[Rfam]
RNA sequence: UUAUAGAACGCUUUAGCUAUUUAACUGUUUUGUCCGUCUAUGUCAAAGAACAAAUUGUUCUCUAACAGUGACAGAACAGUUCAAUAGCUAAAUCAUGCUAUAAC
Numbered sequence: 001u002u003a004u005a006g007a008a009c010g011c012u013u014u015a016g017c018u019a020u021u022u023a024a025c026u027g028u029u030u031u032g033u034c035c036g037u038c039u040a041u042g043u044c045a046a047a048g049a050a051c052a053a054a055u056u057g058u059u060c061u062c063u064a065a066c067a068g069u070g071a072c073a074g075a076a077c078a079g080u081u082c083a084a085u086a087g088c089u090a091a092a093u094c095a096u097g098c099u100a101u102a103a104c
Stems, first nucleotide, its partner, number of pairs: 001103006012092010023081006031067003049059004

This 104-nucleotide sequence from Plutella xylostella belongs to the Rfam family "mir-8517 microRNA precursor family".